Source information:
Shown here is a 99-nucleotide RNA from Algoriphagus aquimarinus, a member of the family "SAM riboswitch aptamer (S box leader)". The SAM riboswitch is found upstream of a number of genes which code for proteins involved in methionine or cysteine biosynthesis in Gram-positive bacteria. Taxonomically the source falls in Algoriphagus (Bacteria, Pseudomonadati, Bacteroidota, Cyclobacteriaceae).

RNA sequence: UGCUUAUCGAGAAAGACCGAGGGAAGGGCCCUAUGACGUCUUAGCAACCUGAGAAUAAGGUGCUAACUCCCAUUCCGGAUUUCCGGAAACAGAUGAGCG
Numbered sequence: 001u002g003c004u005u006a007u008c009g010a011g012a013a014a015g016a017c018c019g020a021g022g023g024a025a026g027g028g029c030c031c032u033a034u035g036a037c038g039u040c041u042u043a044g045c046a047a048c049c050u051g052a053g054a055a056u057a058a059g060g061u062g063c064u065a066a067c068u069c070c071c072a073u074u075c076c077g078g079a080u081u082u083c084c085g086g087a088a089a090c091a092g093a094u095g096a097g098c099g
Stems, first nucleotide, its partner, number of pairs: 001099008013042005021031003026071003043064004048060002068091001073088006